[Rfam]
RNA sequence: GGAGCGUGUGUCCCGGUCGACACAUCUGAACAUUGAUCGCUGACUUCGGCCGAUCUGCUCAGUAAGAUGUCCCUUCACACGUUUCACAUACCGGAGCUCUCGCUGCCUCGCCGCACGAUCGAGCUUCACUCCAAAUUGGCCCGCGUUCGCUCUCAUUGGGUUGAGCGUGUGUGCCGUAGGGUUUACAAUGUUUCUACCGGGCUUCUCGAGAUUCGUUCUAACUAAUUGGGAAGUUUGGGGUGACUCAACGAUUUAUGACGCUCCAAUUCGGCACUGCGAGUCUGCAGUCUGCCAUACCUUUUA
Number, nucleotide and partner (000 for none) at each position: 001g264002g263003a262004g261005c260006g259007u258008g000009u000010g000011u000012c000013c000014c000015g000016g078017u077018c000019g076020a075021c000022a000023c000024a000025u000026c062027u061028g060029a000030a000031c057032a056033u000034u000035g055036a054037u053038c052039g050040c049041u048042g047043a000044c000045u000046u000047c042048g041049g040050c039051c000052g038053a037054u036055c035056u032057g031058c000059u000060c028061a027062g026063u000064a000065a000066g000067a000068u000069g000070u000071c000072c000073c000074u000075u020076c019077a017078c016079a000080c000081g000082u000083u000084u000085c000086a000087c000088a000089u000090a000091c000092c000093g000094g000095a000096g000097c000098u000099c000100u000101c000102g000103c000104u000105g000106c000107c000108u000109c000110g000111c000112c000113g000114c000115a000116c000117g000118a000119u000120c000121g000122a000123g000124c000125u000126u000127c000128a000129c000130u000131c000132c000133a000134a000135a000136u000137u000138g000139g000140c000141c000142c000143g000144c000145g000146u000147u000148c000149g000150c000151u000152c000153u000154c000155a000156u000157u000158g000159g000160g000161u000162u000163g000164a000165g000166c000167g000168u000169g000170u000171g000172u000173g000174c000175c000176g000177u000178a000179g000180g000181g000182u000183u000184u000185a000186c000187a000188a000189u000190g000191u000192u000193u000194c000195u000196a000197c000198c000199g000200g000201g000202c000203u000204u000205c000206u000207c000208g000209a000210g000211a000212u000213u000214c000215g000216u000217u000218c000219u000220a000221a000222c000223u000224a000225a000226u000227u000228g000229g000230g000231a000232a000233g000234u000235u000236u000237g000238g000239g000240g000241u000242g000243a000244c000245u000246c000247a000248a000249c000250g000251a000252u000253u000254u000255a000256u000257g000258a007259c006260g005261c004262u003263c002264c001265a000266a000267u000268u000269c000270g293271g292272c291273a288274c287275u286276g285277c284278g000279a000280g000281u000282c000283u000284g277285c276286a275287g274288u273289c000290u000291g272292c271293c270294a000295u000296a000297c000298c000299u000300u000301u000302u000303a000
A member of the RNA family "Arthropod 7SK RNA" from Dreissena polymorpha, 303 nucleotides long. The organism belongs to Dreissena, within Eukaryota. A reference for the family is Gruber et al. (2008), "Arthropod 7SK RNA", Mol Biol Evol. The family's RNA type in Rfam is non-coding RNA gene. The base pairs follow the family's consensus structure, which is taken from published work.